[Rfam]
RNA: Bacterial small signal recognition particle RNA
Organism: Arsenophonus endosymbiont of Bemisia tabaci
RNA sequence: UGUUAGUUCUCCCGCAAUGCUAACUUGUUAACUUGGUCAGGUCUGGAAAGAAGCAGCCAUAGCAAAGGGUGUAUGUGAAGGGAUGUCGCUGACAGGA
Numbered sequence: 001u002g003u004u005a006g007u008u009c010u011c012c013c014g015c016a017a018u019g020c021u022a023a024c025u026u027g028u029u030a031a032c033u034u035g036g037u038c039a040g041g042u043c044u045g046g047a048a049a050g051a052a053g054c055a056g057c058c059a060u061a062g063c064a065a066a067g068g069g070u071g072u073a074u075g076u077g078a079a080g081g082g083a084u085g086u087c088g089c090u091g092a093c094a095g096g097a
Stems, first nucleotide, its partner, number of pairs: 004091004010083004015075001017074004025065005034059004042051003